[Rfam]
RNA sequence: AUGGUCUCAAGACCACUCCGGUUUCUCCGCUCCGGGCGCCACCAGCUGAUGGCCUCUCGCUACAGACUUUGAACA
Numbered sequence: 001a002u003g004g005u006c007u008c009a010a011g012a013c014c015a016c017u018c019c020g021g022u023u024u025c026u027c028c029g030c031u032c033c034g035g036g037c038g039c040c041a042c043c044a045g046c047u048g049a050u051g052g053c054c055u056c057u058c059g060c061u062a063c064a065g066a067c068u069u070u071g072a073a074c075a
Base pairs, nucleotide, nucleotide: 002015003014004013005012006011019034020033021032024029047072049070051068052067

Shown here is a 75-nucleotide RNA from Herbaspirillum sp. meg3, a member of the family "Xanthomonas sRNA sX9". The literature on the family includes a 2011 paper in Nucleic Acids Res by Schmidtke et al., "Genome-wide transcriptome analysis of the plant pathogen Xanthomonas identifies sRNAs with putative virulence functions". Rfam classes the family as a small RNA. Taxonomically the source falls in Herbaspirillum (Bacteria, Betaproteobacteria, Burkholderiales, Oxalobacteraceae). The family has 16 seed sequences and 309 matches in Rfam 15.1.